The family of this 88-nucleotide RNA sequence is "Proteo-phage-1 RNA". The family's consensus secondary structure is taken from published work. Rfam classes the family as a small RNA.
[Rfam]
RNA sequence: ACCCUUCCCGCGGGGCUGGAUCUUCCAGAUGGUGCGGGCCGGGACAAGCCGGAGAGUGUCCCGGUUUCAGAAACAACCUUCGGCAGCC
Numbered sequence: 001a002c003c004c005u006u007c008c009c010g011c012g013g014g015g016c017u018g019g020a021u022c023u024u025c026c027a028g029a030u031g032g033u034g035c036g037g038g039c040c041g042g043g044a045c046a047a048g049c050c051g052g053a054g055a056g057u058g059u060c061c062c063g064g065u066u067u068c069a070g071a072a073a074c075a076a077c078c079u080u081c082g083g084c085a086g087c088c
Stems, first nucleotide, its partner, number of pairs: 002014003007038005018026003040063005048084005